[Rfam]
RNA sequence: CUCUUAUUUCGAGAGGUGGAGGGACUGGCCCUGUGAAACCCGGCAACCGAUCCAUUUGAUUGUGGUGCUAAUUCCAGCAAAGCGAACGCUUUGAAAAAUAAGAG
Numbered sequence: 001c002u003c004u005u006a007u008u009u010c011g012a013g014a015g016g017u018g019g020a021g022g023g024a025c026u027g028g029c030c031c032u033g034u035g036a037a038a039c040c041c042g043g044c045a046a047c048c049g050a051u052c053c054a055u056u057u058g059a060u061u062g063u064g065g066u067g068c069u070a071a072u073u074c075c076a077g078c079a080a081a082g083c084g085a086a087c088g089c090u091u092u093g094a095a096a097a098a099u100a101a102g103a104g
Stems, first nucleotide, its partner, number of pairs: 001104008013041001015040003021031003025077004042069004047065002049061004073096001078093006
Rfam assigns this 104-nucleotide sequence from Halobacillus andaensis to the family "SAM riboswitch aptamer (S box leader)".
Rfam's curators write: The SAM riboswitch is found upstream of a number of genes which code for proteins involved in methionine or cysteine biosynthesis in Gram-positive bacteria.
The base pairs follow the family's consensus structure, which is taken from published work.
Its family is annotated with regulation of gene expression in the Gene Ontology.
The organism belongs to Halobacillus, within Bacteria.